[Rfam]
RNA sequence: GGACAGUGAAGAUUGGUGAAAGGUCUCGUUCGUCGUAAUGGUGAUUGUUUUGCCUUGCCGACCCUAUUGAAUAUCACCACUAAAAUUUCUGAGUCC
Numbered sequence: 001g002g003a004c005a006g007u008g009a010a011g012a013u014u015g016g017u018g019a020a021a022g023g024u025c026u027c028g029u030u031c032g033u034c035g036u037a038a039u040g041g042u043g044a045u046u047g048u049u050u051u052g053c054c055u056u057g058c059c060g061a062c063c064c065u066a067u068u069g070a071a072u073a074u075c076a077c078c079a080c081u082a083a084a085a086u087u088u089c090u091g092a093g094u095c096c
Stems, first nucleotide, its partner, number of pairs: 001096004043056002
Rfam assigns this 96-nucleotide sequence from Acer yangbiense to the family "Small nucleolar RNA Z43".
The family's RNA type in Rfam is C/D-box small nucleolar RNA.
The family's consensus secondary structure was predicted with PFOLD.
Gene Ontology terms of the family: RNA processing and nucleolus.